This 176-nucleotide part of an RNA from Lasiosphaeria miniovina belongs to the Rfam family "Ascomycota telomerase RNA". The base pairs follow the family's consensus structure. The literature on the family includes a 2013 paper in Nucleic Acids Res by Qi et al., "The common ancestral core of vertebrate and fungal telomerase RNAs". Taxonomically the source falls in Lasiosphaeria (Eukaryota, Dikarya, Ascomycota, sordariomyceta).

RNA sequence: GACCCCGUGUCUUUGCUCUUGAGCAUUGGCACAUUUCCUUUCGGCGAGCCAGAAAUGGCACCGCCCGAAGACGACAGCACGGUUUUUUAUGGAUGUUUUAGUUCGUGCGGAACGCCCUCCUUGCGCGCCACUCCGGUGGCCUCUGGUGGAGAGGAAUCACAAAACAAAUCCCAGUU
Numbered sequence: 001g002a003c004c005c006c007g008u009g010u011c012u013u014u015g016c017u018c019u020u021g022a023g024c025a026u027u028g029g030c031a032c033a034u035u036u037c038c039u040u041u042c043g044g045c046g047a048g049c050c051a052g053a054a055a056u057g058g059c060a061c062c063g064c065c066c067g068a069a070g071a072c073g074a075c076a077g078c079a080c081g082g083u084u085u086u087u088u089a090u091g092g093a094u095g096u097u098u099u100a101g102u103u104c105g106u107g108c109g110g111a112a113c114g115c116c117c118u119c120c121u122u123g124c125g126c127g128c129c130a131c132u133c134c135g136g137u138g139g140c141c142u143c144u145g146g147u148g149g150a151g152a153g154g155a156a157u158c159a160c161a162a163a164a165c166a167a168a169u170c171c172c173a174g175u176u
Stems, first nucleotide, its partner, number of pairs: 007032003011028001015024003038073001039070005044064003048059004092170003095165005101158001115154002117151004127147004135141002